[Rfam]
RNA: ryfA RNA
Organism: Erwinia sp. OLSSP12
RNA sequence: CCGGGCCUUUCCGCCGCCUUAGCAAGCGGGCACUGGACCAGGGAAAGGGUAUCCAACGGCCGUAAACGCAAGCGCGUAACAGUGCUUGUUUUCACGGUGGCAUCUCCAGUGGUGUAAGCGUGAAGCGGUCUGAGCAAGGACCGCGCAAUGAAACGGUACUUUUGUAUUGUGCUCAUUGUUUCUGGUGCAUUGUUGUCUCACGGGGAAGGGGGCUGGAAUAUCUCCAAUAACUCAAUAUCUGUGACCAUCAACGCAACAGGCAAGUAAGCCAGGUAGCCGUCCUUCGGGACGGCUUUCCUC
Numbered sequence: 001c002c003g004g005g006c007c008u009u010u011c012c013g014c015c016g017c018c019u020u021a022g023c024a025a026g027c028g029g030g031c032a033c034u035g036g037a038c039c040a041g042g043g044a045a046a047g048g049g050u051a052u053c054c055a056a057c058g059g060c061c062g063u064a065a066a067c068g069c070a071a072g073c074g075c076g077u078a079a080c081a082g083u084g085c086u087u088g089u090u091u092u093c094a095c096g097g098u099g100g101c102a103u104c105u106c107c108a109g110u111g112g113u114g115u116a117a118g119c120g121u122g123a124a125g126c127g128g129u130c131u132g133a134g135c136a137a138g139g140a141c142c143g144c145g146c147a148a149u150g151a152a153a154c155g156g157u158a159c160u161u162u163u164g165u166a167u168u169g170u171g172c173u174c175a176u177u178g179u180u181u182c183u184g185g186u187g188c189a190u191u192g193u194u195g196u197c198u199c200a201c202g203g204g205g206a207a208g209g210g211g212g213c214u215g216g217a218a219u220a221u222c223u224c225c226a227a228u229a230a231c232u233c234a235a236u237a238u239c240u241g242u243g244a245c246c247a248u249c250a251a252c253g254c255a256a257c258a259g260g261c262a263a264g265u266a267a268g269c270c271a272g273g274u275a276g277c278c279g280u281c282c283u284u285c286g287g288g289a290c291g292g293c294u295u296u297c298c299u300c
Stems, first nucleotide, its partner, number of pairs: 007047006014029004031036001059186003069088007091124006098117001101114004125144007145179007153170007187265002190263005209225004240253003272298002275294008
Dot-bracket structure: ......((((((.((((........)))).(....).....))))))...........(((.......(((((((......)))))))..((((((.(..((((......))))..).))))))(((((((......)))))))(((((((.(((((((....)))))))..)))))))....)))((.(((((..............((((.........))))..............(((........))).....)))))))......((.((((((((....))))))))..))..